[Rfam]
RNA sequence: AGGUUCCCUCGAGUGCCACCGCGGAGCUAGAAUCGGGAGUCCCAGUGACUCUCACGCGCUCUGAGCGAAGGUCCCUGGAUCUCGGGCAGAAAGUGCCGCAGCGUAAUUAUCGCGCUGUUAGCCUCCGCCGUCGGCUCAUCGAAGAGAGGAAGCUUCGGCUGAUCUUUCGAGCCGGGCGCGAGUGUAUUGGUCAAAGUAAAGUAAUGUGCUUGCACGUCGCUUUGCGGCGAACUUAACAGGGCCUACUCCGAGGAAACU
Numbered sequence: 001a002g003g004u005u006c007c008c009u010c011g012a013g014u015g016c017c018a019c020c021g022c023g024g025a026g027c028u029a030g031a032a033u034c035g036g037g038a039g040u041c042c043c044a045g046u047g048a049c050u051c052u053c054a055c056g057c058g059c060u061c062u063g064a065g066c067g068a069a070g071g072u073c074c075c076u077g078g079a080u081c082u083c084g085g086g087c088a089g090a091a092a093g094u095g096c097c098g099c100a101g102c103g104u105a106a107u108u109a110u111c112g113c114g115c116u117g118u119u120a121g122c123c124u125c126c127g128c129c130g131u132c133g134g135c136u137c138a139u140c141g142a143a144g145a146g147a148g149g150a151a152g153c154u155u156c157g158g159c160u161g162a163u164c165u166u167u168c169g170a171g172c173c174g175g176g177c178g179c180g181a182g183u184g185u186a187u188u189g190g191u192c193a194a195a196g197u198a199a200a201g202u203a204a205u206g207u208g209c210u211u212g213c214a215c216g217u218c219g220c221u222u223u224g225c226g227g228c229g230a231a232c233u234u235a236a237c238a239g240g241g242c243c244u245a246c247u248c249c250g251a252g253g254a255a256a257c258u
Stems, first nucleotide, its partner, number of pairs: 002258004007253005015209001017208003022063006037051005069244003073241004085097004098118006120183001129178004134173001139170003142166004152159002212228002215226003
This 258-nucleotide sequence from Nasonia vitripennis belongs to the Rfam family "RNase MRP". The family's consensus secondary structure is taken from published work. RNase MRP is an enzymatically active ribonucleoprotein with two distinct roles in eukaryotes. In mitochondria it plays a direct role in the initiation of mitochondrial DNA replication. In the nucleus it is involved in precursor rRNA processing, where it cleaves the internal transcribed spacer 1 between 18S and 5.8S rRNAs. Despite distinct functions, RNase MRP has been shown to be evolutionarily related to RNase P. Like eukaryotic RNase P, RNase MRP is not catalytically active without associated protein subunits. It scores 82 bits against the family's covariance model. The family is grouped with related families in Rfam's "RNaseP clan".